[Rfam]
RNA sequence: AGCUUGCCAAUGAUGUAUAUUCUUAAAAAAUGUCUGAACAUAUGAACUCCAUAGUGAUUUCAGUGCAUUACUGAGAGAAGCU
Number, nucleotide and partner (000 for none) at each position: 001a000002g081003c080004u079005u078006g000007c000008c075009a000010a000011u000012g000013a000014u000015g000016u000017a000018u000019a000020u000021u000022c000023u000024u000025a000026a000027a000028a000029a000030a000031u000032g000033u000034c000035u000036g000037a000038a000039c000040a000041u000042a000043u000044g000045a000046a000047c000048u000049c000050c000051a000052u000053a000054g000055u000056g000057a000058u000059u000060u000061c000062a000063g000064u000065g000066c000067a000068u000069u000070a000071c000072u000073g000074a000075g008076a000077g000078a005079a004080g003081c002082u000
A member of the RNA family "Small nucleolar RNA SNORD72" from Patagioenas fasciata, 82 nucleotides long.
Rfam describes the family as follows. snoRNA HBII-240 belongs to the CD family of snoRNAs. It is the human orthologue of the mouse MBII-240 and is predicted to guide 2'O-ribose methylation of the large 28S rRNA at residue U4590.
A reference for the family is Huttenhofer et al. (2001), "RNomics: an experimental approach that identifies 201 candidates for novel, small, non-messenger RNAs in mouse", EMBO J.
It scores 71 bits against the family's covariance model.
The base pairs follow the family's consensus structure.